[Rfam]
Nucleotides: 303
Base pairs, nucleotide, nucleotide: 001040002039003038004023005022006021007020008019009018010017028037029036030035044302045301046300047299048298049297050296051295052294053293056290057289058287059286060285061283062282063281064280066278068277069276070275071274072273073272074270075269076268077267078261079260080259081258083256084255085254086252087251088250091248096247098245099244100243101242102241103240105235106234109232110231111230112229114226115225117223118222119221120220121219122218124163125162126161127160131156132155133154134153135152136151137150138149139148140147141146164169171216172215173214174213175212181208182207183206184205189200190199191198
Number, partner (000 for none) and nucleotide at each position: 001040g002039c003038c004023g005022g006021g007020c008019u009018u010017a011000g012000u013000a014000a015000c016000g017010u018009g019008g020007g021006c022005u023004u024000g025000u026000a027000a028037c029036u030035c031000g032000a033000g034000u035030g036029a037028g038003g039002g040001c041000u042000u043000u044302g045301a046300g047299g048298u049297g050296a051295u052294g053293g054000g055000a056290u057289g058287u059286u060285g061283g062282g063281u064280c065000u066278a067000a068277c069276c070275a071274a072273u073272g074270a075269g076268u077267c078261g079260g080259g081258g082000c083256c084255a085254a086252u087251g088250g089000c090000g091248a092000a093000c094000u095000g096247c097000u098245g099244g100243c101242u102241u103240g104000c105235c106234c107000g108000c109232u110231c111230c112229a113000a114226g115225u116000g117223g118222a119221g120220a121219g122218u123000u124163g125162a126161g127160c128000u129000u130000u131156g132155u133154g134153g135152u136151u137150c138149u139148g140147g141146c142000a143000a144000a145000g146141g147140u148139u149138g150137g151136g152135a153134c154133u155132a156131c157000u158000c159000u160127g161126c162125u163124c164169u165000u166000a167000g168000a169164g170000u171216g172215g173214a174213g175212g176000g177000u178000a179000c180000u181208g182207c183206g184205u185000g186000a187000g188000g189200c190199u191198g192000g193000u194000u195000u196000c197000a198191c199190a200189g201000a202000g203000c204000a205184g206183c207182g208181u209000u210000c211000a212175c213174c214173u215172c216171c217000c218122g219121c220120u221119c222118u223117u224000g225115a226114c227000a228000g229112u230111g231110g232109a233000u234106g235105g236000a237000u238000c239000a240103c241102a242101g243100g244099c245098u246000c247096g248091u249000g250088c251087c252086a253000c254085u255084u256083g257000a258081u259080c260079c261078c262000a263000g264000c265000u266000u267077g268076g269075c270074u271000c272073c273072a274071u275070u276069g277068g278066u279000u280064g281063a282062c283061c284000u285060c286059a287058a288000u289057u290056a291000g292000a293053c294052c295051a296050u297049c298048a299047c300046u301045u302044u303000u
The record is a 303-nucleotide sequence from Ricinus communis, which matches "Plant signal recognition particle RNA" in Rfam. It is annotated as a non-coding RNA gene. The family is grouped with related families in Rfam's "SRP clan".